[Rfam]
RNA sequence: CCGUCGGGCACACGCCCGCGCGGACACUGACACCGGUACCUGACACGGCCGGUGCAG
Numbered sequence: 001c002c003g004u005c006g007g008g009c010a011c012a013c014g015c016c017c018g019c020g021c022g023g024a025c026a027c028u029g030a031c032a033c034c035g036g037u038a039c040c041u042g043a044c045a046c047g048g049c050c051g052g053u054g055c056a057g
Base pairs, nucleotide, nucleotide: 001023002022003021004020005018006017007016008015027057028056029055031054032053033052034051035050036049037048
The record is a 57-nucleotide RNA, which matches "L17-Actino-Proteobacteria ribosomal protein leader" in Rfam.
The match comes from Rfam's covariance-model search (67 bits).
The base pairs follow the family's consensus structure, which is taken from published work.